[Rfam]
RNA sequence: UCAAGAAUGCGCCUCCGAGCCUGAUGCCCUAAAAGAGAUUUUAUCUCUCAGGGGCGUCGGGCCGAUGGGUUUCGCCGGAAACAGCGGAGCCUCCCUGUUUUCGGAAAGGAGACCAUUGCCUUGGGCU
Numbered sequence: 001u002c003a004a005g006a007a008u009g010c011g012c013c014u015c016c017g018a019g020c021c022u023g024a025u026g027c028c029c030u031a032a033a034a035g036a037g038a039u040u041u042u043a044u045c046u047c048u049c050a051g052g053g054g055c056g057u058c059g060g061g062c063c064g065a066u067g068g069g070u071u072u073c074g075c076c077g078g079a080a081a082c083a084g085c086g087g088a089g090c091c092u093c094c095c096u097g098u099u100u101u102c103g104g105a106a107a108g109g110a111g112a113c114c115a116u117u118g119c120c121u122u123g124g125g126c127u
Stems, first nucleotide, its partner, number of pairs: 003121001011113001013111004019062011034048005067092009077082001093104002

Overview: The family of this 127-nucleotide RNA sequence from Syntrophotalea carbinolica is "Molybdenum/Tungsten riboswitch aptamer (Moco RNA motif)". The organism belongs to Syntrophotalea carbinolica, within Bacteria. A search with the family's covariance model found it, with a score of 69 bits.